Rfam assigns this 50-nucleotide sequence from Neobacillus cucumis to the family "Ribosomal protein L19 leader". It is annotated as a cis-regulatory leader. This family is a putative r-protein leader autoregulatory structure found in B. subtilis and other low-GC Gram-positive bacteria. It is located in the 5' untranslated regions of mRNAs encoding ribosomal protein L19 (rplS). NCBI's taxonomy places the organism under Bacteria, Bacillati, Bacillota, Bacilli, Neobacillus. A reference for the family is Zengel and Lindahl (1994), "Diverse mechanisms for regulating ribosomal protein synthesis in Escherichia coli", Prog Nucleic Acid Res Mol Biol. Rfam links the family to the GO term regulation of gene expression.

RNA sequence: ACGAUGUUCCGCUGCAUGUAACAAGGAAAGAUGAUUUGUAUGAGCAUCUG
Numbered sequence: 001a002c003g004a005u006g007u008u009c010c011g012c013u014g015c016a017u018g019u020a021a022c023a024a025g026g027a028a029a030g031a032u033g034a035u036u037u038g039u040a041u042g043a044g045c046a047u048c049u050g
Stems, first nucleotide, its partner, number of pairs: 003048007013040004